[Rfam]
RNA sequence: CCUUCGAUCUCUGGAGAGCGGCUGCGGCAAUCUGCCGGCAGCCCACCGAAGGGGCGCGCGCAAAGUCUUCGAGACCGCGCAAUCUCUCAGGUACCAAGGACAGAGGGGUCAUC
Numbered sequence: 001c002c003u004u005c006g007a008u009c010u011c012u013g014g015a016g017a018g019c020g021g022c023u024g025c026g027g028c029a030a031u032c033u034g035c036c037g038g039c040a041g042c043c044c045a046c047c048g049a050a051g052g053g054g055c056g057c058g059c060g061c062a063a064a065g066u067c068u069u070c071g072a073g074a075c076c077g078c079g080c081a082a083u084c085u086c087u088c089a090g091g092u093a094c095c096a097a098g099g100a101c102a103g104a105g106g107g108g109u110c111a112u113c
Base pairs, nucleotide, nucleotide: 008106009105010104011103012102013101020043021042022041023040024039025038045092046091047090048088049087052086053085054084058080059079060078061077